[Rfam]
RNA sequence: UAUCAUGCUUUUCCACAGCUUUCUUGAACUUCUUCCCCUCUGAAUUUUCAUCUCUAGCAAUUGAAUAGCUGAUGAGAUGAAAUUAAGCUAUGAAAGUUCAAGAAAGUUGUGGGAAAACAUGGUGA
Numbered sequence: 001u002a003u004c005a006u007g008c009u010u011u012u013c014c015a016c017a018g019c020u021u022u023c024u025u026g027a028a029c030u031u032c033u034u035c036c037c038c039u040c041u042g043a044a045u046u047u048u049c050a051u052c053u054c055u056a057g058c059a060a061u062u063g064a065a066u067a068g069c070u071g072a073u074g075a076g077a078u079g080a081a082a083u084u085a086a087g088c089u090a091u092g093a094a095a096g097u098u099c100a101a102g103a104a105a106g107u108u109g110u111g112g113g114a115a116a117a118c119a120u121g122g123u124g125a
Stems, first nucleotide, its partner, number of pairs: 003122005013112003017108006024101004029096003033092001
A member of the RNA family "MIR396 microRNA precursor family" from Nicotiana attenuata, 125 nucleotides long. The source organism's lineage runs through Eukaryota, Tracheophyta, lamiids, Solanales and Nicotiana. Pairs were carried over by alignment from the consensus structure, which was predicted with WAR.